[Rfam]
RNA sequence: CGGGCAGCUAGGCAAACGGGCCAAGCCGAAAAGGGUGCAACAAUCCGCGCCCCUGCUGUCCGGUUUCAUUCUGGAGG
Numbered sequence: 001c002g003g004g005c006a007g008c009u010a011g012g013c014a015a016a017c018g019g020g021c022c023a024a025g026c027c028g029a030a031a032a033g034g035g036u037g038c039a040a041c042a043a044u045c046c047g048c049g050c051c052c053c054u055g056c057u058g059u060c061c062g063g064u065u066u067c068a069u070u071c072u073g074g075a076g077g
Stems, first nucleotide, its partner, number of pairs: 001062008011027003033052005041077001044074002
Shown here is a 77-nucleotide sequence from Desulfuromonas thiophila, a member of the family "int-alpA RNA". The family has 167 seed sequences and 577 matches in Rfam 15.1. The base pairs follow the family's consensus structure, which is taken from published work. Rfam's curators write: Acidobacteria (1 example), Planctomycetes (1 example), Proteobacteria.